[Rfam]
Nucleotides: 148
Base pairs, nucleotide, nucleotide: 003146004145005144006143007142008141009140010139017029018028019027031128032127033117034116035063036062037061038060058115059114066093067092097113098112099111100110101109119131120130121129
Number, partner (000 for none) and nucleotide at each position: 001000a002000c003146u004145u005144g006143u007142u008141c009140u010139c011000a012000g013000g014000g015000c016000g017029g018028g019027g020000u021000g022000g023000a024000a025000g026000u027019c028018c029017c030000c031128a032127c033117c034116g035063g036062c037061g038060g039000u040000a041000a042000u043000c044000u045000g046000a047000u048000c049000u050000u051000u052000c053000a054000g055000a056000a057000a058115g059114c060038c061037c062036g063035c064000g065000a066093g067092c068000g069000c070000u071000u072000c073000u074000c075000c076000g077000u078000g079000u080000g081000g082000a083000g084000a085000a086000g087000g088000u089000c090000a091000a092067g093066c094000a095000g096000a097113c098112c099111c100110g101109g102000u103000g104000u105000a106000a107000a108000u109101c110100c111099g112098g113097g114059g115058c116034c117033g118000a119131c120130g121129g122000u123000a124000a125000g126000a127032g128031u129121c130120c131119g132000g133000a134000a135000g136000a137000a138000a139010g140009a141008g142007a143006a144005u145004g146003a147000g148000g
Overview: The family of this 148-nucleotide sequence from Pseudodesulfovibrio profundus is "FMN riboswitch aptamer (RFN element)". The base pairs follow the family's consensus structure, which is taken from published work. The RFN element is a highly conserved domain that is found frequently in the 5'-untranslated regions of prokaryotic mRNAs that encode for flavin mononucleotide (FMN) biosynthesis and transport proteins. It scores 115 bits against the family's covariance model.